Shown here is a 75-nucleotide RNA from Dreissena polymorpha, a member of the family "Small nucleolar RNA SNORD58". Rfam 15.1 lists 2,484 matches to the family in 680 species. snoRNA U58 is found in introns 1, 3 and 6 of the ribosomal protein RPL17 gene in humans. It scores 48 bits against the family's covariance model. Gene Ontology terms of the family: nucleolus and RNA processing. It is annotated as a C/D-box small nucleolar RNA. NCBI's taxonomy places the organism under Eukaryota, Bilateria, Lophotrochozoa, Dreissenidae, Dreissena.

Nucleotides: 075
Base pairs, nucleotide, nucleotide: 001074002073003072004071
Number, partner (000 for none) and nucleotide at each position: 001074u002073u003072g004071c005000a006000a007000u008000g009000a010000u011000g012000a013000a014000a015000a016000u017000c018000u019000u020000a021000g022000g023000a024000c025000a026000c027000c028000u029000u030000u031000u032000a033000a034000u035000g036000u037000u038000c039000c040000a041000u042000g043000a044000g045000a046000a047000a048000a049000a050000c051000c052000a053000a054000a055000g056000c057000g058000u059000u060000a061000c062000c063000a064000a065000u066000c067000c068000u069000g070000a071004g072003c073002a074001a075000a